Shown here is a 101-nucleotide RNA sequence from Hirundo rustica, a member of the family "mir-1684 microRNA precursor family". Rfam links the family to the GO terms miRNA-mediated post-transcriptional gene silencing and RISC complex. The match comes from Rfam's covariance-model search (61 bits). The source organism's lineage runs through Eukaryota, Eumetazoa, Tetrapoda, Neoaves and Hirundo rustica.

[Rfam]
RNA sequence: UGAGAUAAAAGAAGGCAUCAAUUACCUCAGCCUUUUUCAUGUCCUUUGUCUCCAUGGGGACAUGAAAAAGGCUGAGGUAAUUGAUGCCUUCUUUUAUCUCA
Number, nucleotide and partner (000 for none) at each position: 001u000002g100003a099004g000005a000006u096007a095008a000009a093010a092011g091012a090013a089014g088015g087016c086017a085018u084019c083020a082021a081022u000023u079024a078025c077026c076027u075028c074029a073030g072031c071032c070033u000034u068035u067036u000037u065038c064039a063040u062041g061042u060043c059044c058045u057046u056047u000048g000049u000050c000051u000052c000053c000054a000055u000056g046057g045058g044059g043060a042061c041062a040063u039064g038065a037066a000067a035068a034069a000070g032071g031072c030073u029074g028075a027076g026077g025078u024079a023080a000081u021082u020083g019084a018085u017086g016087c015088c014089u013090u012091c011092u010093u009094u000095u007096a006097u000098c000099u003100c002101a000